[Rfam]
The family of this 256-nucleotide sequence from Malus baccata is "RNase MRP". RNase MRP is an enzymatically active ribonucleoprotein with two distinct roles in eukaryotes. The base pairs follow the family's consensus structure, which is taken from published work. The organism belongs to Malus, within Eukaryota.
RNA sequence: ACACCACUGGACGAGGCGAUUGGGUCAUAUUUCUGUAAAAAGAAUUAGACCCAGGAAAGUCCCCGGGCCCCCUAUCUGCAGAGAUGCAGGCCUGGAAACAGGUACCCUCCGUAGGCUUGGAGUCUUAUCGCCUCGUGCGAUGGGCUGAGACACGUGUGGAGCCUUUAGGCUUCAAGCCCGGAGUAAUCUUGGCCGACUUAACAGUUAUUCGCUUGGUCCAUUGGUCUAACUGAACGGGGCUUACGUUUCAGUGGUG
Dot-bracket structure: .((((((((((..((((((..((((.......................))))....[[[.[[[[............((((....)))).(((((....)))))..((.......((((((.........((((........((((......(....)...))))..)))).))))))..))...........................)))))).(.((...)).).........]]]]]]]....))))))))))